[Rfam]
Nucleotides: 161
Base pairs, nucleotide, nucleotide: 012037013036014035015034016033018031019030020029021028022027043132044131045130046129047089048088049087050086071081072080073079090116091115092114093113094112095111097109117128118127119126120125135156136155137154138153139152140151141150142149143148
Number, partner (000 for none) and nucleotide at each position: 001000a002000u003000g004000c005000g006000a007000u008000g009000a010000g011000u012037c013036g014035a015034u016033g017000c018031u019030c020029u021028a022027c023000u024000u025000u026000g027022g028021u029020a030019g031018a032000u033016u034015a035014u036013u037012g038000a039000a040000g041000c042000a043132c044131g045130g046129g047089a048088g049087u050086u051000c052000u053000g054000g055000a056000a057000c058000a059000u060000u061000g062000g063000g064000u065000u066000g067000u068000u069000c070000g071081u072080g073079c074000a075000g076000g077000a078000a079073g080072c081071a082000u083000g084000a085000g086050a087049a088048c089047u090116u091115g092114u093113u094112a095111g096000c097109g098000c099000g100000u101000g102000u103000g104000a105000a106000c107000c108000g109097u110000u111095c112094u113093g114092a115091c116090a117128c118127a119126a120125c121000g122000a123000a124000a125120g126119u127118u128117g129046c130045c131044c132043g133000a134000a135156a136155g137154a138153c139152c140151u141150c142149u143148c144000u145000u146000u147000u148143g149142a150141g151140a152139g153138g154137u155136c156135u157000u158000u159000u160000u161000u
A member of the RNA family "MarS sRNA" from Lactococcus garvieae, 161 nucleotides long. The family's consensus secondary structure is taken from published work. Rfam classes the family as a small RNA. A reference for the family is Perez et al. (2009), "A genome-wide analysis of small regulatory RNAs in the human pathogen group A Streptococcus", PLoS One. About the family: Interacts with the 5'UTR of the mga transcript (the multiple virulence gene regulator gene) and was renamed MarS for mag-activating regulatory sRNA. In MarS deletion strains expression of mga and several Mga-activated genes is reduced. This down-regulation of virulence factors leads to increased susceptibility of the deletion strain to phagocytosis, reduced adherence to human keratinocytes. However, the lack of MarS increased bacterial dissemination and tolerance towards oxidative stress. Rfam links the family to the GO terms mRNA 5'-UTR binding and positive regulation of translation, ncRNA-mediated. The match comes from Rfam's covariance-model search (86 bits).